[Rfam]
RNA: c-di-AMP riboswitch aptamer (ydaO/yuaA leader)
RNA sequence: GACGGGCCACCGCCUAAUCGUGUUUCACGAGCCGGGGACCCAGGAAACCGGGGUCAAGCCACAGCUCCAUCGUGGCCGGGCGUGCUUCCCGCCCGAACCCGUCAGCUAACCCGGUCGGCGGAUGAGGGAAGAAAG
Numbered sequence: 001g002a003c004g005g006g007c008c009a010c011c012g013c014c015u016a017a018u019c020g021u022g023u024u025u026c027a028c029g030a031g032c033c034g035g036g037g038a039c040c041c042a043g044g045a046a047a048c049c050g051g052g053g054u055c056a057a058g059c060c061a062c063a064g065c066u067c068c069a070u071c072g073u074g075g076c077c078g079g080g081c082g083u084g085c086u087u088c089c090c091g092c093c094c095g096a097a098c099c100c101g102u103c104a105g106c107u108a109a110c111c112c113g114g115u116c117g118g119c120g121g122a123u124g125a126g127g128g129a130a131g132a133a134a135g
Base pairs, nucleotide, nucleotide: 011120012119013118014117018030019029020028031115032114033113034112035111036110041050051100052099053098059075060074061073062072078094079093080092081091